[Rfam]
RNA sequence: CGGUGAUGUCUUCUUACCAUUAUCAACGAAGGCACUCGGUCAUGCUGUGGGAUGAAAUAGCCUUAGACGCCAGUCGUCGAGAGUGUGAUGUGAGGUGGGGUUUAAUGCCCC
Numbered sequence: 001c002g003g004u005g006a007u008g009u010c011u012u013c014u015u016a017c018c019a020u021u022a023u024c025a026a027c028g029a030a031g032g033c034a035c036u037c038g039g040u041c042a043u044g045c046u047g048u049g050g051g052a053u054g055a056a057a058u059a060g061c062c063u064u065a066g067a068c069g070c071c072a073g074u075c076g077u078c079g080a081g082a083g084u085g086u087g088a089u090g091u092g093a094g095g096u097g098g099g100g101u102u103u104a105a106u107g108c109c110c111c
Stems, first nucleotide, its partner, number of pairs: 002018003007034007035094004039089008049063003053059001066078004097111005
Dot-bracket structure: .[[[..(((((((..]]].........)))))))((((((((((((..(((.(.....).)))..((((.....))))...)))))))).))))..(((((.....)))))

Shown here is a 111-nucleotide RNA from Neobacillus cucumis, a member of the family "epsC RNA". Pairs were carried over by alignment from the consensus structure, which is taken from published work.